The record is a 268-nucleotide part of an RNA from candidate division MSBL1 archaeon SCGC-AAA382A13, which matches "Archaeal large subunit ribosomal RNA" in Rfam.
NCBI's taxonomy places the organism under Archaea, Methanobacteriati, Methanobacteriota, candidate division MSBL1.
[Rfam]
RNA sequence: GAUUUCAUCUCUGUGGCGAGGCUAAAGAGUUCAUCUCUGAAGCCGUAGCGAAAGCAACAUGCCCGCAGUCUCGUUUAUCGAGAUCAGGGGCGGGGUGUGAAAGUGCCCGGAGUCACUGUGAUGAGACCCGAAACCAGGCGAUCUAGCCCGGGGCAGGGUGAAGCCGAUCCUCGGAUUGGUGGAGGCCCGAACCGGUCCUGCCGUGCAAUGCGGUCGGAUGAUUCUGGGCUAGGGGUGAAAGGCCCAUCUAGCCUGGCGACAGCUGGUU
Numbered sequence: 001g002a003u004u005u006c007a008u009c010u011c012u013g014u015g016g017c018g019a020g021g022c023u024a025a026a027g028a029g030u031u032c033a034u035c036u037c038u039g040a041a042g043c044c045g046u047a048g049c050g051a052a053a054g055c056a057a058c059a060u061g062c063c064c065g066c067a068g069u070c071u072c073g074u075u076u077a078u079c080g081a082g083a084u085c086a087g088g089g090g091c092g093g094g095g096u097g098u099g100a101a102a103g104u105g106c107c108c109g110g111a112g113u114c115a116c117u118g119u120g121a122u123g124a125g126a127c128c129c130g131a132a133a134c135c136a137g138g139c140g141a142u143c144u145a146g147c148c149c150g151g152g153g154c155a156g157g158g159u160g161a162a163g164c165c166g167a168u169c170c171u172c173g174g175a176u177u178g179g180u181g182g183a184g185g186c187c188c189g190a191a192c193c194g195g196u197c198c199u200g201c202c203g204u205g206c207a208a209u210g211c212g213g214u215c216g217g218a219u220g221a222u223u224c225u226g227g228g229c230u231a232g233g234g235g236u237g238a239a240a241g242g243c244c245c246a247u248c249u250a251g252c253c254u255g256g257c258g259a260c261a262g263c264u265g266g267u268u
Base pairs, nucleotide, nucleotide: 005124006123007122008121009120011118013116014115015114016113017112020044021043022042023041026038027037028036029035048055049054061091062090063089064088068084069083070082071081072080073079094107095106096105097104127266128265130263134256135255136254137253138252139251143232144231145230146229147228148227149226150225151224152223153222154220156188157187158186159185163180164179165178166177167176168175169174192217193216194215195214197213198212200211201210234244235243236242